A member of the RNA family "mir-927 microRNA precursor family" from Apis mellifera, 81 nucleotides long. Taxonomically the source falls in Apis (Eukaryota, Protostomia, Allotriocarida, Dicondylia). The base pairs follow the family's consensus structure, which was predicted with RNAalifold. A reference for the family is Berezikov et al. (2010), "Evolutionary flux of canonical microRNAs and mirtrons in Drosophila", Nat Genet. Rfam 15.1 lists 174 matches to the family in 143 species.

RNA sequence: AGCGUGGUAUUUGUUUUAGAAUUCCUACGCUUUACCGAUGUUCGAAGUGGCAAAGCGUUUGAAAUCUGAAACGAAUGCGCA
Numbered sequence: 001a002g003c004g005u006g007g008u009a010u011u012u013g014u015u016u017u018a019g020a021a022u023u024c025c026u027a028c029g030c031u032u033u034a035c036c037g038a039u040g041u042u043c044g045a046a047g048u049g050g051c052a053a054a055g056c057g058u059u060u061g062a063a064a065u066c067u068g069a070a071a072c073g074a075a076u077g078c079g080c081a
Base pairs, nucleotide, nucleotide: 010075011074012073013072014071015070016069017068018067019066020065022063023062024061027058028057029056030055031054032053033052035050036049